Shown here is a 576-nucleotide part of an RNA from Aedes aegypti, a member of the family "Eukaryotic large subunit ribosomal RNA".
The literature on the family includes a 2002 paper in BMC Bioinformatics by Cannone et al., "The comparative RNA web (CRW) site: an online database of comparative sequence and structure information for ribosomal, intron, and other RNAs".
Lineage of the source: Eukaryota > Protostomia > Hexapoda > Culicinae > Stegomyia.
[Rfam]
RNA sequence: GACUCUAGUCCGGCAUUGUAAGGCGAUAUAAGAGGUGCAGAAUAGGUGGGAGCCGGGGUAAAACACUAUCUCCCCGGCACCAAUGAGAUACCACCACUCUUACUGUUGCCUUACUUACAUGAUCAGGUGGAACAAGUGCCAAGGUUAUUGCAACCUCCUGGCAUAAGGUUUCUUGUUCAGCGUUCAGUCAUGUCGUCAUUCCUGGCCACAAGGCAGAAGACCGAGCCUGCGGUCAUCGCGUCCGUUGCGCGGCGCCGGGCGUGCGGCCGGACCGGGUGGCUUCGCGGCCACCCCAGUAGGGUCCCGCUCCGGUUUCGUUCGCGUGCGGGCCACGGCCGCAGUUUUGCUCAACUUUCACACCGUACGCCGAUGACAGUAAGACAUCUGGAUACUCCAAGUCAUGGACAGUGCCAGGUGCGGAGUUUGACUGGGGCGGUACAUCUCCAAAACAAUAACGGAGGUGUCCAAAGGUCAGCUCAGUGUGGACAGAAACCACACGCUGAGCAUAAGGACAAAAGCUGGCUUGAUCUCGAUGUUCAGUACAUAUUGAGACAGCGAAAGCUAGGCCUCACGAUC
Dot-bracket structure: .((((...((.((((..((((((((((.((((((..........(((((..(((((((.............)))))))............))))).))))))..))))))))))...(((((.....((((....(((((...................))))).................(((((.......................................................................................................................................................................................................)))))..))))..))))).....)))).))....))))..((((.....))).)((((((...........))))))..((....((((((((.((((((.......))))))...))(........)....))))))....(((((((((.......))))))))).(((....))).))..........